[Rfam]
traJ-II RNA: a 99-nucleotide sequence from Nitrosomonas sp. Nm84.
NCBI's taxonomy places the organism under Bacteria, Pseudomonadati, Pseudomonadota, Betaproteobacteria, Nitrosomonas.
A search with the family's covariance model found it, with a score of 79 bits.
Rfam 15.1 lists 174 matches to the family in 172 species.
The base pairs follow the family's consensus structure, which is taken from published work.
RNA sequence: GGGCAAGAUAUGUGAAGUUAGCUAACUUUUAAAAAAGUUAACUCACAUCACAAGGGUCUUAUUCGCACAUGUGCUCAACGAAUCUUGCUCUGCGAGGCU
Numbered sequence: 001g002g003g004c005a006a007g008a009u010a011u012g013u014g015a016a017g018u019u020a021g022c023u024a025a026c027u028u029u030u031a032a033a034a035a036a037g038u039u040a041a042c043u044c045a046c047a048u049c050a051c052a053a054g055g056g057u058c059u060u061a062u063u064c065g066c067a068c069a070u071g072u073g074c075u076c077a078a079c080g081a082a083u084c085u086u087g088c089u090c091u092g093c094g095a096g097g098c099u
Stems, first nucleotide, its partner, number of pairs: 001090009012051004017046001020043002024039006057081002065074003